[Rfam]
RNA sequence: CGGUUGGGGUCCGCACGGUCCGCCCGGGGGAUUCAACCCGACGGUCACGGGUCGUCCCCGCCGGUGUUGCGCGUGCCCCCUUCCACCCGCCCUACGUCCCUCGGGCGGCGGUUGGGGUUUUUCCAUUGCUGCCGUCGGGCGCAUUUCCUCUGUGGCGGAGGCCUUUCCGUGGCCUUUCGGGGGGCGGUGGGGUCUGAAGGGGACGGGGCCCCUCCGCCUCCGACGCGGCUGUCGACCGGGCCGGACUGUCCUCAGUCCGCCGCCCGACCGCGCCGCCUGGGCGGGGACCGGCCCACGAAACGGGCGCUCGGGGUCAGCGGCGAUGCCGGCCACCCAACCGACCCGUCUUGAAACACGG
Numbered sequence: 001c002g003g004u005u006g007g008g009g010u011c012c013g014c015a016c017g018g019u020c021c022g023c024c025c026g027g028g029g030g031a032u033u034c035a036a037c038c039c040g041a042c043g044g045u046c047a048c049g050g051g052u053c054g055u056c057c058c059c060g061c062c063g064g065u066g067u068u069g070c071g072c073g074u075g076c077c078c079c080c081u082u083c084c085a086c087c088c089g090c091c092c093u094a095c096g097u098c099c100c101u102c103g104g105g106c107g108g109c110g111g112u113u114g115g116g117g118u119u120u121u122u123c124c125a126u127u128g129c130u131g132c133c134g135u136c137g138g139g140c141g142c143a144u145u146u147c148c149u150c151u152g153u154g155g156c157g158g159a160g161g162c163c164u165u166u167c168c169g170u171g172g173c174c175u176u177u178c179g180g181g182g183g184g185c186g187g188u189g190g191g192g193u194c195u196g197a198a199g200g201g202g203a204c205g206g207g208g209c210c211c212c213u214c215c216g217c218c219u220c221c222g223a224c225g226c227g228g229c230u231g232u233c234g235a236c237c238g239g240g241c242c243g244g245a246c247u248g249u250c251c252u253c254a255g256u257c258c259g260c261c262g263c264c265c266g267a268c269c270g271c272g273c274c275g276c277c278u279g280g281g282c283g284g285g286g287a288c289c290g291g292c293c294c295a296c297g298a299a300a301c302g303g304g305c306g307c308u309c310g311g312g313g314u315c316a317g318c319g320g321c322g323a324u325g326c327c328g329g330c331c332a333c334c335c336a337a338c339c340g341a342c343c344c345g346u347c348u349u350g351a352a353a354c355a356c357g358g
Base pairs, nucleotide, nucleotide: 001340002339003338004337005336006335007334008333009331011329012328017109020108021107022106023105024104025103026102027101028100029099030098031097032096114321117318118317119316343358344357345356346355
Shown here is a 358-nucleotide part of an RNA from Silurus meridionalis, a member of the family "Eukaryotic large subunit ribosomal RNA". The literature on the family includes a 2001 paper in Science by Yusupov et al., "Crystal structure of the ribosome at 5.5 A resolution".